[Rfam]
Rfam assigns this 126-nucleotide sequence from Lynx canadensis to the family "Small nucleolar RNA SNORA28". The literature on the family includes a 2001 paper in EMBO J by Huttenhofer et al., "RNomics: an experimental approach that identifies 201 candidates for novel, small, non-messenger RNAs in mouse". The organism belongs to Lynx, within Eukaryota. ACA28 is a member of the H/ACA class of snoRNA that guide the sites of modification of uridines to pseudouridines. Pairs were carried over by alignment from the consensus structure, which was predicted with RNAfold. The family has 26 seed sequences and 922 matches in Rfam 15.1. Its family is annotated with nucleolus and RNA processing in the Gene Ontology.
RNA sequence: AAGCACCACUGUGUGGCAGAUGAUGGAAAUUGUGUGACACAGUCUAGGCUUCCUCUCGCUGGAAGGUCUGUCCUGUUCUACUUACCUCUCCUCCCAAAGACCAGCUGUUACAUAGACUUACACAGC
Number, nucleotide and partner (000 for none) at each position: 001a000002a000003g000004c000005a000006c000007c000008a000009c048010u047011g000012u041013g040014u039015g038016g000017c036018a035019g000020a033021u032022g031023a000024u000025g000026g000027a000028a000029a000030u000031u022032g021033u020034g000035u018036g017037a000038c015039a014040c013041a012042g000043u000044c000045u000046a000047g010048g009049c000050u000051u000052c000053c000054u000055c000056u000057c000058g000059c000060u000061g000062g000063a000064a119065g118066g117067u116068c115069u114070g113071u000072c000073c000074u112075g111076u110077u000078c000079u107080a106081c000082u104083u000084a000085c000086c000087u100088c099089u098090c000091c000092u000093c000094c000095c000096a000097a000098a089099g088100a087101c000102c000103a000104g082105c000106u080107g079108u000109u000110a076111c075112a074113u070114a069115g068116a067117c066118u065119u064120a000121c000122a000123c000124a000125g000126c000